Rfam assigns this 215-nucleotide sequence from Phormidium nigroviride to the family "HNH endonuclease-associated RNA and ORF (HEARO) RNA".
The family's RNA type in Rfam is non-coding RNA gene.
The source organism's lineage runs through Bacteria, Cyanobacteriota, Oscillatoriales, Oscillatoriaceae and Phormidium nigroviride.

RNA sequence: GCUAUUCACCAAACAGUGGACAAGACUAGACAGCUAGUUCAUACACUGGACAAAUAGCCAGCCUAAGUAUCUUGAAUACUACGUUUUGAGGGUGAUGACACCUACGGGUGCUUUCCAGCUUGUAGCUCUGUCGUUAGAGAUUAAACAGAUGUAUUUGGUUAAGUCAGUGUCUCUAACCCAACAAGCCAUCAAAACCUUGGCGAGGAAAACAUAAC
Numbered sequence: 001g002c003u004a005u006u007c008a009c010c011a012a013a014c015a016g017u018g019g020a021c022a023a024g025a026c027u028a029g030a031c032a033g034c035u036a037g038u039u040c041a042u043a044c045a046c047u048g049g050a051c052a053a054a055u056a057g058c059c060a061g062c063c064u065a066a067g068u069a070u071c072u073u074g075a076a077u078a079c080u081a082c083g084u085u086u087u088g089a090g091g092g093u094g095a096u097g098a099c100a101c102c103u104a105c106g107g108g109u110g111c112u113u114u115c116c117a118g119c120u121u122g123u124a125g126c127u128c129u130g131u132c133g134u135u136a137g138a139g140a141u142u143a144a145a146c147a148g149a150u151g152u153a154u155u156u157g158g159u160u161a162a163g164u165c166a167g168u169g170u171c172u173c174u175a176a177c178c179c180a181a182c183a184a185g186c187c188a189u190c191a192a193a194a195c196c197u198u199g200g201c202g203a204g205g206a207a208a209a210c211a212u213a214a215c
Stems, first nucleotide, its partner, number of pairs: 001058006016021001026037004061201003065197001066080005083195007091187003098131002102125008112209002114206003133177009145168002148165003152161002